TPP riboswitch aptamer (THI element): a 94-nucleotide RNA from Rubrobacter xylanophilus. A search with the family's covariance model found it, with a score of 74 bits. From the family's description: Vitamin B(1) in its active form thiamin pyrophosphate (TPP) is an essential coenzyme that is synthesised by coupling of pyrimidine and thiazole moieties in bacteria.

[Rfam]
RNA sequence: AAGCAGCGCUGGGGGUGCCUCGGUAGGGGCUGAGAGCAGACCCUUGGAACCUGAACCGGUUAGCACCGGCGUAGGGAAGCGCGGAUAGGGGUAG
Numbered sequence: 001a002a003g004c005a006g007c008g009c010u011g012g013g014g015g016u017g018c019c020u021c022g023g024u025a026g027g028g029g030c031u032g033a034g035a036g037c038a039g040a041c042c043c044u045u046g047g048a049a050c051c052u053g054a055a056c057c058g059g060u061u062a063g064c065a066c067c068g069g070c071g072u073a074g075g076g077a078a079g080c081g082c083g084g085a086u087a088g089g090g091g092u093a094g
Base pairs, nucleotide, nucleotide: 006082007081008080009079010078011044012043013042014041016038017030018029019028020027021026050075051074052073053072056069057068058067059066